[Rfam]
RNA sequence: GGAUGUGAGGGCGAUCUGGCUGUGACAUCUCUCACCGCAUUGAUCGCCAGGGUUGAUUUGGCUGAUCUGGCUGGCUAGGCGGGUGUCCCCUUCCUCCCUCACCGCUCCAUGUGCGUCCCUCCCGAAGCUGCGCGCUCGGUCGAAGAGGACGACCUUCCCCGAUAGAGACGUACCGUUCAUCGGUCAAGGGUAUACGGUAGCUGCGCUCCCCUGCUAGAAACUCCAAACAAAUAUGGCUUGAUCCUUUUGCUUGGAGACCAAUUCUAGGAAUCAGUGUUUCUUUUGUUUAAUUUGUCUUACUUAAU
Numbered sequence: 001g002g003a004u005g006u007g008a009g010g011g012c013g014a015u016c017u018g019g020c021u022g023u024g025a026c027a028u029c030u031c032u033c034a035c036c037g038c039a040u041u042g043a044u045c046g047c048c049a050g051g052g053u054u055g056a057u058u059u060g061g062c063u064g065a066u067c068u069g070g071c072u073g074g075c076u077a078g079g080c081g082g083g084u085g086u087c088c089c090c091u092u093c094c095u096c097c098c099u100c101a102c103c104g105c106u107c108c109a110u111g112u113g114c115g116u117c118c119c120u121c122c123c124g125a126a127g128c129u130g131c132g133c134g135c136u137c138g139g140u141c142g143a144a145g146a147g148g149a150c151g152a153c154c155u156u157c158c159c160c161g162a163u164a165g166a167g168a169c170g171u172a173c174c175g176u177u178c179a180u181c182g183g184u185c186a187a188g189g190g191u192a193u194a195c196g197g198u199a200g201c202u203g204c205g206c207u208c209c210c211c212u213g214c215u216a217g218a219a220a221c222u223c224c225a226a227a228c229a230a231a232u233a234u235g236g237c238u239u240g241a242u243c244c245u246u247u248u249g250c251u252u253g254g255a256g257a258c259c260a261a262u263u264c265u266a267g268g269a270a271u272c273a274g275u276g277u278u279u280c281u282u283u284u285g286u287u288u289a290a291u292u293u294g295u296c297u298u299a300c301u302u303a304a305u
Stems, first nucleotide, its partner, number of pairs: 001108003005102007013093002018090002024087007032079002035074002038069002042067004046062003117170001119167003122139004127135002140162003147158003200275003207270001209268002213264001221256004227251001228249004
Shown here is a 305-nucleotide RNA from Pandion haliaetus, a member of the family "7SK RNA". The family is grouped with related families in Rfam's "7SK clan". A search with the family's covariance model found it, with a score of 236 bits. Pairs were carried over by alignment from the consensus structure, which is taken from published work. Lineage of the source: Eukaryota > Sauria > Aves > Pandionidae > Pandion. The literature on the family includes a 2002 paper in Curr Biol by Blencowe, "Transcription: surprising role for an elusive small nuclear RNA". 7SK was discovered as an abundant small nuclear RNA in the mid-70s but a possible function has only recently been suggested. Two independent studies have found that 7SK RNA binds the CDK9/cyclin T complex (known as elongation factor P-TEFb). P-TEFb activates transcription by phosphorylating the C-terminal domain of RNA polymerase II. This process is negatively regulated by the 7SK RNP. The secondary structure of 7SK RNA shown here was proposed by Wasserman and Steitz on the basis of chemical modification and enzymatic cleavage experiments. This family contains a number of annotated pseudogenes and 7SK derived repeats. The threshold is artificially high to minimise the pseudogene count.